[Rfam]
Group II catalytic intron D1-D4-1: an 85-nucleotide RNA from Rossellomorea vietnamensis. Gene Ontology term of the family: Group II intron splicing. Rfam's curators write: Group II introns are found in rRNA, tRNA and mRNA of organelles in fungi, plants and protists, and also in mRNA in bacteria. A search with the family's covariance model found it, with a score of 74 bits. The organism belongs to Rossellomorea, within Bacteria.

RNA sequence: UAACCGGAGAAGCGAUUCUCCGCUGAACCGCCAGAAGUCAGCCGAGGUCAUAGUACCGGCUUUUCUCGAGGAAGCCGGGAAGGAC
Number, nucleotide and partner (000 for none) at each position: 001u025002a024003a000004c000005c022006g021007g020008a019009g018010a017011a016012g000013c000014g000015a000016u011017u010018c009019u008020c007021c006022g005023c000024u002025g001026a000027a000028c000029c000030g000031c000032c000033a000034g000035a000036a000037g000038u045039c044040a000041g000042c000043c000044g039045a038046g000047g085048u084049c083050a000051u000052a000053g000054u000055a000056c078057c077058g076059g075060c074061u073062u000063u000064u000065c000066u000067c000068g000069a000070g000071g000072a000073a061074g060075c059076c058077g057078g056079g000080a000081a000082g000083g049084a048085c047